[Rfam]
RNA sequence: AAAGUGCGGGGGUCCAGGAGGACGCGGCGCGCCUGAGAGCCUUCACGGAGGCUAUGACCAGGUACUCCGCCCCCCCCGGGGACCCCCCACAA
Numbered sequence: 001a002a003a004g005u006g007c008g009g010g011g012g013u014c015c016a017g018g019a020g021g022a023c024g025c026g027g028c029g030c031g032c033c034u035g036a037g038a039g040c041c042u043u044c045a046c047g048g049a050g051g052c053u054a055u056g057a058c059c060a061g062g063u064a065c066u067c068c069g070c071c072c073c074c075c076c077c078g079g080g081g082a083c084c085c086c087c088c089a090c091a092a
Base pairs, nucleotide, nucleotide: 006087008085009084010083013080014079015078017076018075020073021072026071027070028069029067031063032062033061034060035059038053039052040051041050042049043048
RNA: Hepatitis C virus stem-loop SL8670